Rfam assigns this 142-nucleotide RNA sequence from Octodon degus to the family "U4 spliceosomal RNA". From the family's description: U4 small nuclear RNA (U4 snRNA) is a component of the major U2-dependent spliceosome. A search with the family's covariance model found it, with a score of 68 bits. Rfam links the family to the GO terms spliceosomal tri-snRNP complex assembly and U4 snRNP. By type it is a spliceosomal small nuclear RNA. The source organism's lineage runs through Eukaryota, Eumetazoa, Craniata, Rodentia and Octodon. Its Rfam clan is "U4 clan".
[Rfam]
RNA sequence: AGCUUUGUGCAGUGGCAGUAUCACAGCCAGUGAGGUUUAUCCGAGGUGUGGUUUUUGCUGAUUGAAAAGAAUGCCGUGACACCAUGUUCACUGUGAGUCUUGAAAAAGUGUGCAGAGAAAGGGUUGUACUGUUACAGGUACC
Numbered sequence: 001a002g003c004u005u006u007g008u009g010c011a012g013u014g015g016c017a018g019u020a021u022c023a024c025a026g027c028c029a030g031u032g033a034g035g036u037u038u039a040u041c042c043g044a045g046g047u048g049u050g051g052u053u054u055u056u057g058c059u060g061a062u063u064g065a066a067a068a069g070a071a072u073g074c075c076g077u078g079a080c081a082c083c084a085u086g087u088u089c090a091c092u093g094u095g096a097g098u099c100u101u102g103a104a105a106a107a108g109u110g111u112g113c114a115g116a117g118a119a120a121g122g123g124u125u126g127u128a129c130u131g132u133u134a135c136a137g138g139u140a141c142c
Stems, first nucleotide, its partner, number of pairs: 020052005026047003034042002083117001085114003089110004094105001131142001133140002